[Rfam]
Rfam assigns this 137-nucleotide RNA from Desulfofarcimen acetoxidans to the family "Group II catalytic intron D1-D4-4".
RNA sequence: UAACGGGUGGAAAUCCCGUCUGGUAAGACUCUAGCCAAGUCACCAGUAGCGAGUCUUGGACUUGAUGGAGUAAUUCAUAGAGUUAAGCGUAGACAGGUAGGUAGUAGGCCUGAAUGUGAUUGAGCCCCGUAAUGGGC
Numbered sequence: 001u002a003a004c005g006g007g008u009g010g011a012a013a014u015c016c017c018g019u020c021u022g023g024u025a026a027g028a029c030u031c032u033a034g035c036c037a038a039g040u041c042a043c044c045a046g047u048a049g050c051g052a053g054u055c056u057u058g059g060a061c062u063u064g065a066u067g068g069a070g071u072a073a074u075u076c077a078u079a080g081a082g083u084u085a086a087g088c089g090u091a092g093a094c095a096g097g098u099a100g101g102u103a104g105u106a107g108g109c110c111u112g113a114a115u116g117u118g119a120u121u122g123a124g125c126c127c128c129g130u131a132a133u134g135g136g137c
Base pairs, nucleotide, nucleotide: 020046021045022044023043024042054093055092056091059084060083061082062081063080068075069074098112099111100110101109102108116130117129118128
Group II introns are found in rRNA, tRNA and mRNA of organelles in fungi, plants and protists, and also in mRNA in bacteria. The family has 90 seed sequences and 840 matches in Rfam 15.1. The pairing is the family consensus, mapped onto this sequence.